[Rfam]
RNA sequence: ACGCACAAGCAGAAGCACCCGCUUCUCACCUACUCGGCCAUCGGCUGAAUGGUACGCGAUCGAUGAUUGUAACUGGCAGCAACCUUGUGUUGCUUUUGAAAGCCUACGAUCUUGGUUAAUGGAAUGCGGGUCCGAUGCGGAUCCGCAUUUUUGUUUUUGC
Numbered sequence: 001a002c003g004c005a006c007a008a009g010c011a012g013a014a015g016c017a018c019c020c021g022c023u024u025c026u027c028a029c030c031u032a033c034u035c036g037g038c039c040a041u042c043g044g045c046u047g048a049a050u051g052g053u054a055c056g057c058g059a060u061c062g063a064u065g066a067u068u069g070u071a072a073c074u075g076g077c078a079g080c081a082a083c084c085u086u087g088u089g090u091u092g093c094u095u096u097u098g099a100a101a102g103c104c105u106a107c108g109a110u111c112u113u114g115g116u117u118a119a120u121g122g123a124a125u126g127c128g129g130g131u132c133c134g135a136u137g138c139g140g141a142u143c144c145g146c147a148u149u150u151u152u153g154u155u156u157u158u159g160c
Stems, first nucleotide, its partner, number of pairs: 011026006028053003034048005125147010
Ribosomal protein L20 leader: a 160-nucleotide RNA from Paenibacillus albus. On this family, see Zengel and Lindahl, Prog Nucleic Acid Res Mol Biol 1994: "Diverse mechanisms for regulating ribosomal protein synthesis in Escherichia coli". Gene Ontology term of the family: regulation of gene expression. NCBI's taxonomy places the organism under Bacteria, Bacillota, Bacilli, Caryophanales, Paenibacillus. This family is a putative r-protein leader autoregulatory structure found in B. subtilis and other low-GC Gram-positive bacteria. It is located in the 5' untranslated regions of mRNAs encoding initiation factor 3 followed by ribosomal proteins L35 and L20 (infC-rpmI-rplT).